The family of this 72-nucleotide RNA from Leptolyngbya sp. 'hensonii' is "Cyano-1 RNA". Taxonomically the source falls in Leptolyngbya (Bacteria, Bacillati, Cyanobacteriota, Leptolyngbyales).
[Rfam]
RNA sequence: UAUUGUGUGAGGAGUGAAUAAGCGAAGAGGCCCUUGGAGUCGAAACACGGCAAGACGUCCAAGGGCCUUUUU
Number, nucleotide and partner (000 for none) at each position: 001u000002a000003u000004u000005g000006u000007g000008u000009g000010a000011g000012g000013a000014g000015u000016g000017a000018a000019u000020a000021a000022g000023c000024g000025a000026a070027g069028a068029g067030g066031c065032c064033c000034u000035u000036g060037g059038a058039g056040u055041c054042g000043a000044a000045a000046c000047a000048c000049g000050g000051c000052a000053a000054g041055a040056c039057g000058u038059c037060c036061a000062a000063g000064g032065g031066c030067c029068u028069u027070u026071u000072u000

Rfam classes the family as a small RNA.